[Rfam]
RNA sequence: AGAUCAUGUUGAUGACAAUUCCUUAACAACGCUUUGUAGCACUCCCAAGCUUCGUAUAGUGACUCCCCCGAUUGUUGCUCAAAGUUGUCUAUUUCCUUCUUGAGAUU
Dot-bracket structure: (..(((..................................................((.(..........).))..........................)).)..)
The record is a 107-nucleotide sequence from Lactuca sativa, which matches "Plant small nucleolar RNA R71" in Rfam. Rfam links the family to the GO terms nucleolus and RNA processing. The family's consensus secondary structure was predicted with PFOLD. A reference for the family is Brown et al. (2003), "Plant snoRNAs: functional evolution and new modes of gene expression", Trends Plant Sci.